[Rfam]
This 202-nucleotide RNA sequence from Cnephaeus nilssonii belongs to the Rfam family "Small nucleolar RNA SNORA74".
The source organism's lineage runs through Eukaryota, Metazoa, Amniota, Vespertilionidae and Cnephaeus.
Rfam describes the family as follows. U19 belongs to the H/ACA class of snoRNAs. snoRNAs bind a number of proteins (including dyskerin, Gar1p and Nop10p in the case of the H/ACA class) to form snoRNP complexes. This class are thought to guide the sites of modification of uridines to pseudouridines by forming direct base pairing interactions with substrate RNAs. Targets may include ribosomal and spliceosomal RNAs but the exact functions of many snoRNAs, including U19, are not confirmed. Co-precipitation of U19 snoRNA with RNase MRP RNA suggests that U19 may be involved in pre-rRNA processing.
By type it is an H/ACA-box small nucleolar RNA.
On this family, see Ganot et al., Genes Dev 1997: "The family of box ACA small nucleolar RNAs is defined by an evolutionarily conserved secondary structure and ubiquitous sequence elements essential for RNA accumulation".
RNA sequence: UCUAGCAGUGGUCAGCUCUCCAUGCAGCAUCAUGCCUGUGAUCGUGUUGCACUGCUGGGAGAGGAAUGCCCUGUCUGCUUCCUCCAGUUGUCCCUGCACUGACCUGGUGACAUGUGGCACUGGUGCAAGGCAGAACUGUGCUUCCUUGAAAGUGAGCUAAGCAUCACUUUGGCUGCUUAGUUCUAGAGUGGGAGCAGACACA
Numbered sequence: 001u002c003u004a005g006c007a008g009u010g011g012u013c014a015g016c017u018c019u020c021c022a023u024g025c026a027g028c029a030u031c032a033u034g035c036c037u038g039u040g041a042u043c044g045u046g047u048u049g050c051a052c053u054g055c056u057g058g059g060a061g062a063g064g065a066a067u068g069c070c071c072u073g074u075c076u077g078c079u080u081c082c083u084c085c086a087g088u089u090g091u092c093c094c095u096g097c098a099c100u101g102a103c104c105u106g107g108u109g110a111c112a113u114g115u116g117g118c119a120c121u122g123g124u125g126c127a128a129g130g131c132a133g134a135a136c137u138g139u140g141c142u143u144c145c146u147u148g149a150a151a152g153u154g155a156g157c158u159a160a161g162c163a164u165c166a167c168u169u170u171g172g173c174u175g176c177u178u179a180g181u182u183c184u185a186g187a188g189u190g191g192g193a194g195c196a197g198a199c200a201c202a
Stems, first nucleotide, its partner, number of pairs: 001059009011050002015045002019041002021038002024035002068136001071133006082125001084123002087118005095110001097109004139196007154183003158179006